[Rfam]
RNA sequence: UAACCUGCGUCGGGAGACGCAGCUGAACCGGCAGAAGUCAGCAAAGGCCAUAGUACCGGCAGGGGGACGCCCCAACCGGGAAGGGC
Numbered sequence: 001u002a003a004c005c006u007g008c009g010u011c012g013g014g015a016g017a018c019g020c021a022g023c024u025g026a027a028c029c030g031g032c033a034g035a036a037g038u039c040a041g042c043a044a045a046g047g048c049c050a051u052a053g054u055a056c057c058g059g060c061a062g063g064g065g066g067a068c069g070c071c072c073c074a075a076c077c078g079g080g081a082a083g084g085g086c
Base pairs, nucleotide, nucleotide: 001025002024005022006021007020008019009018010017011016038045047086048085049084056079057078058077062073063072064071

Rfam assigns this 86-nucleotide sequence from Symbiobacterium thermophilum to the family "Group II catalytic intron D1-D4-1". Group II introns are found in rRNA, tRNA and mRNA of organelles in fungi, plants and protists, and also in mRNA in bacteria. Rfam 15.1 lists 2,508 matches to the family in 1,144 species.